[Rfam]
RNA sequence: GAAGACCCUGUUGAGCUUGACUCUAGUCUGGCUUUGUGAGGAGACACGAGAGGUGUAGCAUAAGUGGGAGAUUUCGGUCGACUUUGAAAUACCACUACUCCCGUCGUUUCCUCACUUACUCGGUGAGGCGGGGAGCGGCUGUUAAUACCUUCGGGUGUUGCAGUCGGAAUUGUUGAGCCAAGUUCCUAGUCACCUAGAGUGCGGGCAUAUUACGGAGGGUCGGGGUUAAAGCCGAUCCAAAGUUUUAUGCUGGAACGACUCGAUCCGAGGACACCGCCAGGCGGGGAGUUUGACUGGGGCGGUACAUCUGUCAAAUGAUAACGCAGGUGUCCUAAGGCCAGCUCAGCGAGGACAGAAACCUCGCGUAGAGCAAAAGGGCAAAAGCUGGCUUGAUCCUGAUUUUCAGUACGAAUACGGACUGCGAAAGCACGGCCUAUCGAUCCUUUUGGCUUUGAGAGUUUCAAGCAAGAGGUGUCAGAAAAGUUACCACAGGGAUAACUGGCUUGUGGCGGCCAAGCGUUCAUAGCGACGUCGCUUUUUGAUCCUUCGAUGU
Numbered sequence: 001g002a003a004g005a006c007c008c009u010g011u012u013g014a015g016c017u018u019g020a021c022u023c024u025a026g027u028c029u030g031g032c033u034u035u036g037u038g039a040g041g042a043g044a045c046a047c048g049a050g051a052g053g054u055g056u057a058g059c060a061u062a063a064g065u066g067g068g069a070g071a072u073u074u075c076g077g078u079c080g081a082c083u084u085u086g087a088a089a090u091a092c093c094a095c096u097a098c099u100c101c102c103g104u105c106g107u108u109u110c111c112u113c114a115c116u117u118a119c120u121c122g123g124u125g126a127g128g129c130g131g132g133g134a135g136c137g138g139c140u141g142u143u144a145a146u147a148c149c150u151u152c153g154g155g156u157g158u159u160g161c162a163g164u165c166g167g168a169a170u171u172g173u174u175g176a177g178c179c180a181a182g183u184u185c186c187u188a189g190u191c192a193c194c195u196a197g198a199g200u201g202c203g204g205g206c207a208u209a210u211u212a213c214g215g216a217g218g219g220u221c222g223g224g225g226u227u228a229a230a231g232c233c234g235a236u237c238c239a240a241a242g243u244u245u246u247a248u249g250c251u252g253g254a255a256c257g258a259c260u261c262g263a264u265c266c267g268a269g270g271a272c273a274c275c276g277c278c279a280g281g282c283g284g285g286g287a288g289u290u291u292g293a294c295u296g297g298g299g300c301g302g303u304a305c306a307u308c309u310g311u312c313a314a315a316u317g318a319u320a321a322c323g324c325a326g327g328u329g330u331c332c333u334a335a336g337g338c339c340a341g342c343u344c345a346g347c348g349a350g351g352a353c354a355g356a357a358a359c360c361u362c363g364c365g366u367a368g369a370g371c372a373a374a375a376g377g378g379c380a381a382a383a384g385c386u387g388g389c390u391u392g393a394u395c396c397u398g399a400u401u402u403u404c405a406g407u408a409c410g411a412a413u414a415c416g417g418a419c420u421g422c423g424a425a426a427g428c429a430c431g432g433c434c435u436a437u438c439g440a441u442c443c444u445u446u447u448g449g450c451u452u453u454g455a456g457a458g459u460u461u462c463a464a465g466c467a468a469g470a471g472g473u474g475u476c477a478g479a480a481a482a483g484u485u486a487c488c489a490c491a492g493g494g495a496u497a498a499c500u501g502g503c504u505u506g507u508g509g510c511g512g513c514c515a516a517g518c519g520u521u522c523a524u525a526g527c528g529a530c531g532u533c534g535c536u537u538u539u540u541g542a543u544c545c546u547u548c549g550a551u552g553u
Stems, first nucleotide, its partner, number of pairs: 007493004012489002014485005020289004027281006036115010046104003050100003063096005070079002119269005129262004137165005182256005292305001293303003306328006331432002337389006343369002346364006370379002394418003399413004420429003443471006451465004502543001504541001506540001508536006517527002

Rfam assigns this 553-nucleotide part of an RNA from Folsomia candida to the family "Eukaryotic large subunit ribosomal RNA".
Lineage of the source: Eukaryota > Collembola > Entomobryomorpha > Isotomidae > Folsomia.
On this family, see Yusupov et al., Science 2001: "Crystal structure of the ribosome at 5.5 A resolution".
Pairs were carried over by alignment from the consensus structure, which is taken from published work.
Its family is annotated with structural constituent of ribosome and ribosome in the Gene Ontology.